[Rfam]
RNA sequence: GACCUAAACUCUAAAAACCUUUAAUUUUUUUAGAGCAUGGUCACAAAUCCUAUACAAAUAAACAAGGUCUUCUGAUCAGCAUUUAUUUGUAUAGGUCUAUACUCGAAAGGGUAUAGGAUAACUUCGAAAGGAGCUAUC
Numbered sequence: 001g002a003c004c005u006a007a008a009c010u011c012u013a014a015a016a017a018c019c020u021u022u023a024a025u026u027u028u029u030u031u032a033g034a035g036c037a038u039g040g041u042c043a044c045a046a047a048u049c050c051u052a053u054a055c056a057a058a059u060a061a062a063c064a065a066g067g068u069c070u071u072c073u074g075a076u077c078a079g080c081a082u083u084u085a086u087u088u089g090u091a092u093a094g095g096u097c098u099a100u101a102c103u104c105g106a107a108a109g110g111g112u113a114u115a116g117g118a119u120a121a122c123u124u125c126g127a128a129a130g131g132a133g134c135u136a137u138c
Stems, first nucleotide, its partner, number of pairs: 001042004009035009049095011062082001066077003097116008117138004122133004